Description: The family of this 166-nucleotide RNA from Fictibacillus aquaticus is "c-di-AMP riboswitch aptamer (ydaO/yuaA leader)". NCBI's taxonomy places the organism under Bacteria, Bacillota, Caryophanales, Fictibacillaceae, Fictibacillus. From the family's description: This family represents a conserved RNA structure found upstream of the ydaO and yuaA genes in Bacillus subtilis and related genes in other bacteria. A search with the family's covariance model found it, with a score of 89 bits.
RNA sequence: AUACAGCAAUCGCUGAAUCAGGGUUUGAAUGAUUAUUCAAGUUACCUGAGCGGGGGACCCAUUAUUUACGGCUUUAAAAGGCCUGGGAUGAAUUUGCUUAAAGCAAAAGGGAUAAUCUCAUUUCCUAAUCCGACAGCUAACCUCGCAAGCGUUUUGGAGAGAUAAG
Numbered sequence: 001a002u003a004c005a006g007c008a009a010u011c012g013c014u015g016a017a018u019c020a021g022g023g024u025u026u027g028a029a030u031g032a033u034u035a036u037u038c039a040a041g042u043u044a045c046c047u048g049a050g051c052g053g054g055g056g057a058c059c060c061a062u063u064a065u066u067u068a069c070g071g072c073u074u075u076a077a078a079a080g081g082c083c084u085g086g087g088a089u090g091a092a093u094u095u096g097c098u099u100a101a102a103g104c105a106a107a108a109g110g111g112a113u114a115a116u117c118u119c120a121u122u123u124c125c126u127a128a129u130c131c132g133a134c135a136g137c138u139a140a141c142c143u144c145g146c147a148a149g150c151g152u153u154u155u156g157g158a159g160a161g162a163u164a165a166g
Stems, first nucleotide, its partner, number of pairs: 011151004018049005050146006060085002086131003094106004109125004